[Rfam]
Notes
Rfam assigns this 140-nucleotide RNA from Nesterenkonia xinjiangensis to the family "SAM (S-adenosyl methionine) riboswitch aptamer". The literature on the family includes a 2008 paper in RNA by Weinberg et al., "The aptamer core of SAM-IV riboswitches mimics the ligand-binding site of SAM-I riboswitches". From the family's description: SAM-IV is a mRNA element that regulates gene expression via direct sensing of S-adenosylmethionine (SAM or AdoMet). SAM-IV riboswitches share conserved nucleotide positions with the previously described SAM-I riboswitches sequence analysis and molecular recognition experiments suggest that SAM-I and SAM-IV riboswitches share similar ligand binding sites, but have different scaffolds. Its family is annotated with regulation of gene expression and S-adenosylmethionine metabolic process in the Gene Ontology. The family's consensus secondary structure is taken from published work. Its Rfam clan is "SAM clan".
RNA sequence: GAUCACGAGAACCGGUCACAACAGCUCUGGCUUGGCCGGUCGGCAACCCUUUCCCGCGUGACGGGGUGCCCCAGAUGACGAUCCGGCCGCACCGGCCAUCUUCACUGAGAUGGCUUUAUCUUCAGCGGCAAGCACGGCGC
Number, nucleotide and partner (000 for none) at each position: 001g083002a082003u081004c080005a000006c000007g000008a000009g041010a000011a040012c039013c038014g037015g036016u035017c000018a000019c000020a000021a000022c000023a032024g031025c000026u000027c000028u000029g000030g000031c024032u023033u000034g000035g016036c015037c014038g013039g012040u011041c009042g070043g069044c068045a000046a000047c066048c065049c064050u000051u000052u061053c060054c000055c000056g000057c000058g000059u000060g053061a052062c000063g000064g049065g048066g047067u000068g044069c043070c042071c000072c000073a000074g000075a000076u000077g000078a000079c000080g004081a003082u002083c001084c000085g000086g129087c128088c127089g126090c125091a000092c000093c000094g000095g000096c000097c000098a000099u000100c000101u000102u000103c000104a000105c000106u000107g000108a000109g000110a000111u000112g000113g000114c000115u000116u000117u000118a000119u000120c000121u000122u000123c000124a000125g090126c089127g088128g087129c086130a000131a000132g000133c000134a000135c000136g000137g000138c000139g000140c000